[Rfam]
RNA sequence: GGGAUAUGAUGAGUGGUCAAAACUCGCAUUUAAAUAUGCGAGAUGGGUGUCCAGCCCAGCCUGGUUACGACAAACCAUAGGCACUCUCUUUUACCUAUCUGAUCCC
Numbered sequence: 001g002g003g004a005u006a007u008g009a010u011g012a013g014u015g016g017u018c019a020a021a022a023c024u025c026g027c028a029u030u031u032a033a034a035u036a037u038g039c040g041a042g043a044u045g046g047g048u049g050u051c052c053a054g055c056c057c058a059g060c061c062u063g064g065u066u067a068c069g070a071c072a073a074a075c076c077a078u079a080g081g082c083a084c085u086c087u088c089u090u091u092u093a094c095c096u097a098u099c100u101g102a103u104c105c106c
Stems, first nucleotide, its partner, number of pairs: 001106004014097003023042005045086007062077004
A member of the RNA family "Small nucleolar RNA Z279/snoR105/snoR108" from Nicotiana tabacum, 106 nucleotides long.
The family's consensus secondary structure was predicted with PFOLD.
It is annotated as a C/D-box small nucleolar RNA.
From the family's description: This family includes the plant snoRNAs known as Z279, snoR105 and snoR108.
NCBI's taxonomy places the organism under Eukaryota, Viridiplantae, Mesangiospermae, Gunneridae, Nicotiana.
Its Rfam clan is "snoU13 clan".
On this family, see Marker et al., Curr Biol 2002: "Experimental RNomics: identification of 140 candidates for small non-messenger RNAs in the plant Arabidopsis thaliana".
Rfam 15.1 lists 906 matches to the family in 223 species.